Annotation
Shown here is an 84-nucleotide RNA from Chryseobacterium sp. SC28, a member of the family "Flavo-1 RNA". The match comes from Rfam's covariance-model search (79 bits).
RNA sequence: CCAUAGCCCCGAUUGCAGUGGAAAUCCUUUUUCUUUUUUUCAAAAAAAAAAAGAAAAAGAUUGCAACGGAAAGCGGGAUGAAGC
Numbered sequence: 001c002c003a004u005a006g007c008c009c010c011g012a013u014u015g016c017a018g019u020g021g022a023a024a025u026c027c028u029u030u031u032u033c034u035u036u037u038u039u040u041c042a043a044a045a046a047a048a049a050a051a052a053g054a055a056a057a058a059g060a061u062u063g064c065a066a067c068g069g070a071a072a073g074c075g076g077g078a079u080g081a082a083g084c
Stems, first nucleotide, its partner, number of pairs: 009076003013072002018067002023062004029057012